[Rfam]
RNA sequence: AGCGCAUAGGGUGAUGGCGUUCCACCUUAACCAACCGCCAGUCCGCGUUCCGGACGGCUGAUGACGCCUGACAUAGA
Numbered sequence: 001a002g003c004g005c006a007u008a009g010g011g012u013g014a015u016g017g018c019g020u021u022c023c024a025c026c027u028u029a030a031c032c033a034a035c036c037g038c039c040a041g042u043c044c045g046c047g048u049u050c051c052g053g054a055c056g057g058c059u060g061a062u063g064a065c066g067c068c069u070g071a072c073a074u075a076g077a
Base pairs, nucleotide, nucleotide: 010026011025012024013023016068017067018066019065020064021063037058038057039056
Dot-bracket structure: .........[[[[..((((((.]]]]..........(((................)))....)))))).........